[Rfam]
RNA sequence: GUGCUCAGAUUUUUCUUCAGAUCAAAUAAAUCUUUCGCCUUUUACUAAAGGUUUCUGUGCAGAGGGACAGUCGUGAGUGAUCAGGAAAUUUUUUUGUGGCUCUGCUGUGGCAAAGCU
Numbered sequence: 001g002u003g004c005u006c007a008g009a010u011u012u013u014u015c016u017u018c019a020g021a022u023c024a025a026a027u028a029a030a031u032c033u034u035u036c037g038c039c040u041u042u043u044a045c046u047a048a049a050g051g052u053u054u055c056u057g058u059g060c061a062g063a064g065g066g067a068c069a070g071u072c073g074u075g076a077g078u079g080a081u082c083a084g085g086a087a088a089u090u091u092u093u094u095u096g097u098g099g100c101u102c103u104g105c106u107g108u109g110g111c112a113a114a115g116c117u
Stems, first nucleotide, its partner, number of pairs: 003078004010067007018059002028054008096117001099116003103112002
RNA: U5 spliceosomal RNA
Organism: Helopsaltes ochotensis